Source information:
The family of this 35-nucleotide RNA sequence from Chrysochloris asiatica is "Iron response element I". Taxonomically the source falls in Chrysochloris (Eukaryota, Deuterostomia, Gnathostomata, Dipnotetrapodomorpha). The match comes from Rfam's covariance-model search (38 bits). Rfam classes the family as a cis-regulatory element.
RNA sequence: CUGUCUCUUGUUUCAACAGUAUUUGAAUGGAACAG
Numbered sequence: 001c002u003g004u005c006u007c008u009u010g011u012u013u014c015a016a017c018a019g020u021a022u023u024u025g026a027a028u029g030g031a032a033c034a035g
Stems, first nucleotide, its partner, number of pairs: 001035004006031003010028001012027005